A member of the RNA family "Small nucleolar RNA Z278" from Capsicum baccatum, 116 nucleotides long. It scores 42 bits against the family's covariance model. Rfam links the family to the GO terms nucleolus and RNA processing. It is annotated as a C/D-box small nucleolar RNA.
RNA sequence: AUCUGAAAUUGCUGGAUAGUAUUUGAGAUUGUAGUUAGCCUCAAGUUCCCUGUUUUCAGGGUGAACCUACUUGUCGUUACUGCUUUCAUCAUGAAAUUACUAAAUUUCUCUGAGAU
Number, nucleotide and partner (000 for none) at each position: 001a116002u115003c114004u000005g000006a000007a000008a000009u000010u000011g000012c000013u000014g000015g000016a000017u000018a000019g000020u000021a000022u000023u000024u000025g000026a000027g000028a000029u000030u000031g000032u000033a000034g000035u000036u000037a000038g000039c000040c000041u000042c000043a000044a000045g000046u000047u000048c061049c060050c059051u058052g057053u000054u000055u000056u000057c052058a051059g050060g049061g048062u000063g000064a000065a000066c000067c000068u000069a000070c000071u000072u000073g000074u000075c000076g000077u000078u000079a000080c000081u000082g000083c000084u000085u000086u000087c000088a000089u000090c000091a000092u000093g000094a000095a000096a000097u000098u000099a000100c000101u000102a000103a000104a000105u000106u000107u000108c000109u000110c000111u000112g000113a000114g003115a002116u001

Source information: Taxonomically the source falls in Capsicum (Eukaryota, Viridiplantae, Solanaceae, Capsiceae). Rfam's curators write: snoZ278 is a C/D box small nucleolar RNA. Its methylation guide targets have not been reported.